[Rfam]
RNA sequence: UGAAUCCGCGCGGGAGAGUCCCCGGCCCGGCCGUCCGUGCCGCGCACCGGGGCGCCGAAGGAGCAAGCCUCCCUUGAAUCUCUCAGGCACCGAUACCGCGUGGGCGAG
Numbered sequence: 001u002g003a004a005u006c007c008g009c010g011c012g013g014g015a016g017a018g019u020c021c022c023c024g025g026c027c028c029g030g031c032c033g034u035c036c037g038u039g040c041c042g043c044g045c046a047c048c049g050g051g052g053c054g055c056c057g058a059a060g061g062a063g064c065a066a067g068c069c070u071c072c073c074u075u076g077a078a079u080c081u082c083u084c085a086g087g088c089a090c091c092g093a094u095a096c097c098g099c100g101u102g103g104g105c106g107a108g
Stems, first nucleotide, its partner, number of pairs: 006103008020052006054088003057084002061082003067075001
The family of this 108-nucleotide sequence from Streptomyces sp. SAJ15 is "Glycine riboswitch aptamer".
Lineage of the source: Bacteria > Bacillati > Kitasatosporales > Streptomycetaceae > Streptomyces.